[Rfam]
RNA sequence: UAGUUUUUGAUGUCGCAGAUACUGCAUCAGGAACUGAUUGGAUAAGAAUCAGUCACCAUCAGUUCCUAAUGCAUUGCCUUCAGCAUCUAAACA
Numbered sequence: 001u002a003g004u005u006u007u008u009g010a011u012g013u014c015g016c017a018g019a020u021a022c023u024g025c026a027u028c029a030g031g032a033a034c035u036g037a038u039u040g041g042a043u044a045a046g047a048a049u050c051a052g053u054c055a056c057c058a059u060c061a062g063u064u065c066c067u068a069a070u071g072c073a074u075u076g077c078c079u080u081c082a083g084c085a086u087c088u089a090a091a092c093a
Stems, first nucleotide, its partner, number of pairs: 023073005029067009039058003